A member of the RNA family "tRNA" from Phaeodactylibacter xiamenensis, 74 nucleotides long. The organism belongs to Phaeodactylibacter, within Bacteria. Its Rfam clan is "tRNA clan". Transfer RNA (tRNA) molecules are approximately 80 nucleotides in length.

RNA sequence: GCCUCAGUAGCUCAGCUGGUUAGAGCGGCGGACUGUUAAUCCGUAGGUCAUAGGUUCAAGUCCUAUCUGAGGCG
Numbered sequence: 001g002c003c004u005c006a007g008u009a010g011c012u013c014a015g016c017u018g019g020u021u022a023g024a025g026c027g028g029c030g031g032a033c034u035g036u037u038a039a040u041c042c043g044u045a046g047g048u049c050a051u052a053g054g055u056u057c058a059a060g061u062c063c064u065a066u067c068u069g070a071g072g073c074g
Stems, first nucleotide, its partner, number of pairs: 001073007010026004028044005050066005